[Rfam]
RNA sequence: AUCCAAGUGCACGGGUCUUACGUUUCCAGUGAAGGUUCGCCUGAGGCAACGUUUUUGCUAGUUGAAAACUGCAAAUUUAGACCGCUUCAGUUGGUCUUCGGAUCGGCUGGGAAUUUUUGAACAACUUUCACAAAAGU
Numbered sequence: 001a002u003c004c005a006a007g008u009g010c011a012c013g014g015g016u017c018u019u020a021c022g023u024u025u026c027c028a029g030u031g032a033a034g035g036u037u038c039g040c041c042u043g044a045g046g047c048a049a050c051g052u053u054u055u056u057g058c059u060a061g062u063u064g065a066a067a068a069c070u071g072c073a074a075a076u077u078u079a080g081a082c083c084g085c086u087u088c089a090g091u092u093g094g095u096c097u098u099c100g101g102a103u104c105g106g107c108u109g110g111g112a113a114u115u116u117u118u119g120a121a122c123a124a125c126u127u128u129c130a131c132a133a134a135a136g137u
Base pairs, nucleotide, nucleotide: 020052021051022050023049024048026046027045033042034041035040086111087110088109089108090107091106092105093104094103095102096101124137125136126135127134
Overview
U4 spliceosomal RNA: a 137-nucleotide RNA from Uncinocarpus reesii. The organism belongs to Uncinocarpus reesii, within Eukaryota. On this family, see Bai et al., Science 2018: "Structures of the fully assembled Saccharomyces cerevisiae spliceosome before activation". Clan: U4 clan. The sequence is in the family's curated seed alignment. The family's consensus secondary structure is taken from published work. Rfam links the family to the GO terms spliceosomal tri-snRNP complex assembly and U4 snRNP.